[Rfam]
RNA sequence: CCUGUGGACUGUUAUAUCAAAUGUUAUUAGCGAGCAAUUGGCGAGGGCAGACAGGGUGAAGCAGGAA
Numbered sequence: 001c002c003u004g005u006g007g008a009c010u011g012u013u014a015u016a017u018c019a020a021a022u023g024u025u026a027u028u029a030g031c032g033a034g035c036a037a038u039u040g041g042c043g044a045g046g047g048c049a050g051a052c053a054g055g056g057u058g059a060a061g062c063a064g065g066a067a
Stems, first nucleotide, its partner, number of pairs: 001065005009054005022049003030042002

A member of the RNA family "RAGATH-18 RNA", 67 nucleotides long. It is annotated as a small RNA. The sequence is in the family's curated seed alignment. Pairs were carried over by alignment from the consensus structure, which is taken from published work.